Notes
Rfam assigns this 177-nucleotide sequence from Bacillus gobiensis to the family "Lysine riboswitch aptamer". Gene Ontology term of the family: lysine biosynthetic process. The organism belongs to Bacillus, within Bacteria.
[Rfam]
RNA sequence: UAUGAAGAUAGAGGUGCGAACUUCAAGAGUAAGCCUUUCGAGAAUGGUGGAUUCUAAGAAAAAGGCAGAAAGGGAAGGAUCGCCGAAGUGAAUUCUGUCCAUCAACAGAAUUUGCUGGCUUUGCAUUUAAGAAAUGCAGGGCUGUCAGGAAAUGACUCCUGGAGGGCUAUCUCAUUG
Numbered sequence: 001u002a003u004g005a006a007g008a009u010a011g012a013g014g015u016g017c018g019a020a021c022u023u024c025a026a027g028a029g030u031a032a033g034c035c036u037u038u039c040g041a042g043a044a045u046g047g048u049g050g051a052u053u054c055u056a057a058g059a060a061a062a063a064g065g066c067a068g069a070a071a072g073g074g075a076a077g078g079a080u081c082g083c084c085g086a087a088g089u090g091a092a093u094u095c096u097g098u099c100c101a102u103c104a105a106c107a108g109a110a111u112u113u114g115c116u117g118g119c120u121u122u123g124c125a126u127u128u129a130a131g132a133a134a135u136g137c138a139g140g141g142c143u144g145u146c147a148g149g150a151a152a153u154g155a156c157u158c159c160u161g162g163a164g165g166g167c168u169a170u171c172u173c174a175u176u177g
Base pairs, nucleotide, nucleotide: 006172007171008170009169010168011167016083017082018081019080021078022076023075024074033066034065035064036063037062038061087116088115089114090113091112092111093110094109095108096107097106098105117143118142119141120140121139122138123137124136125135126134127133145162146161147160148159149158150157
Dot-bracket structure: .....((((((....((((.((((........((((((......................)))))).......))).).))))...((((((((((((......))))))))))))(((((((((((.....))))))))))).((((((......))))))....)))))).....